[Rfam]
RNA sequence: GGAGGGGAUGGAGCUGGUGCUCCCCACGGGCUGCAAACCCGUUGGCCUGGCCGCGAGAGCGGUUGGGGGUCGGGUUCGAUUCCCACUCCCCUCC
Number, nucleotide and partner (000 for none) at each position: 001g094002g093003a092004g091005g090006g089007g088008a087009u000010g023011g022012a021013g020014c019015u000016g000017g000018u000019g014020c013021u012022c011023c010024c000025c044026a042027c041028g040029g039030g038031c000032u000033g000034c000035a000036a000037a000038c030039c029040c028041g027042u026043u000044g025045g000046c067047c066048u065049g064050g063051c062052c061053g000054c000055g000056a000057g000058a000059g000060c000061g052062g051063u050064u049065g048066g047067g046068g000069g000070u000071c000072g084073g083074g082075u000076u000077c000078g000079a000080u000081u000082c074083c073084c072085a000086c000087u008088c007089c006090c005091c004092u003093c002094c001
Shown here is a 94-nucleotide RNA sequence from Calderihabitans maritimus, a member of the family "Selenocysteine transfer RNA". On this family, see Mizutani and Goto, FEBS Lett 2000: "Eukaryotic selenocysteine tRNA has the 9/4 secondary structure".